RNA sequence: UUCUGUUAAGCUGUAAGGGAGUGCUGCGCGCACGGGCUGACGAAGGUU
Numbered sequence: 001u002u003c004u005g006u007u008a009a010g011c012u013g014u015a016a017g018g019g020a021g022u023g024c025u026g027c028g029c030g031c032a033c034g035g036g037c038u039g040a041c042g043a044a045g046g047u048u
Stems, first nucleotide, its partner, number of pairs: 009038004021033004
Dot-bracket structure: ........((((........((((.....)))).))))..........
Shown here is a 48-nucleotide RNA, a member of the family "ssnA RNA". The family's RNA type in Rfam is cis-regulatory element. Pairs were carried over by alignment from the consensus structure, which is taken from published work.